[Rfam]
RNA sequence: GGAGACUUGCGAGGGGCUGUCCCUAGUACGAGAGGACCGGGACGGACGAACCUCUGGUGUGCCAGUUGUUCCGCCAGGAGCAUGGCUGGUUGGCUACGUUCGGUAGGGAUAACCGCUGAAAGCAUCUAAGCGGGAAGCUUGCCUUUAGAUGAGGUCUCCCACCCGUGAGGGUUAAGGCCCCCUAGAGAUGAUGGGGUUGAUAGGCUGGGAGUGGAAGCGCGGUAACGUGUGGAGCUGACCGGUACUAAUAGGCCGAGG
Dot-bracket structure: ((((((((..((((..(((((((...............))))))).(((((...(((....(((((((((((....))))))..)))))....))).)))))...(((....(((((...........)))))....))).))))......))))))))..(((....))).(..(((((((((.......)))))....((((((((.((.....(((((....)))))....))..))))).)))...)))).)..
Numbered sequence: 001g002g003a004g005a006c007u008u009g010c011g012a013g014g015g016g017c018u019g020u021c022c023c024u025a026g027u028a029c030g031a032g033a034g035g036a037c038c039g040g041g042a043c044g045g046a047c048g049a050a051c052c053u054c055u056g057g058u059g060u061g062c063c064a065g066u067u068g069u070u071c072c073g074c075c076a077g078g079a080g081c082a083u084g085g086c087u088g089g090u091u092g093g094c095u096a097c098g099u100u101c102g103g104u105a106g107g108g109a110u111a112a113c114c115g116c117u118g119a120a121a122g123c124a125u126c127u128a129a130g131c132g133g134g135a136a137g138c139u140u141g142c143c144u145u146u147a148g149a150u151g152a153g154g155u156c157u158c159c160c161a162c163c164c165g166u167g168a169g170g171g172u173u174a175a176g177g178c179c180c181c182c183u184a185g186a187g188a189u190g191a192u193g194g195g196g197u198u199g200a201u202a203g204g205c206u207g208g209g210a211g212u213g214g215a216a217g218c219g220c221g222g223u224a225a226c227g228u229g230u231g232g233a234g235c236u237g238a239c240c241g242g243u244a245c246u247a248a249u250a251g252g253c254c255g256a257g258g
Stems, first nucleotide, its partner, number of pairs: 001159008011145004017045007047102005055096003062089005067082006106140003113133005162171003173256001176254004180196005201247003204243005210236002217230005
Shown here is a 258-nucleotide part of an RNA from Sphaerimonospora thailandensis, a member of the family "Bacterial large subunit ribosomal RNA". A search with the family's covariance model found it, with a score of 2652 bits. NCBI's taxonomy places the organism under Bacteria, Bacillati, Actinomycetota, Streptosporangiaceae, Sphaerimonospora.